[Rfam]
RNA: Selenocysteine insertion sequence 1
Organism: Sagittarius serpentarius
RNA sequence: CACAUCUCCAUGAAGGCUUGGCCUGAAAGCCCCGGUGUGGGGUGGGCCUGGCCUGAUUCUGCUGGG
Numbered sequence: 001c002a003c004a005u006c007u008c009c010a011u012g013a014a015g016g017c018u019u020g021g022c023c024u025g026a027a028a029g030c031c032c033c034g035g036u037g038u039g040g041g042g043u044g045g046g047c048c049u050g051g052c053c054u055g056a057u058u059c060u061g062c063u064g065g066g
Base pairs, nucleotide, nucleotide: 001066003064004063015053016052017051018050020048021047022046023045024044030041031040032039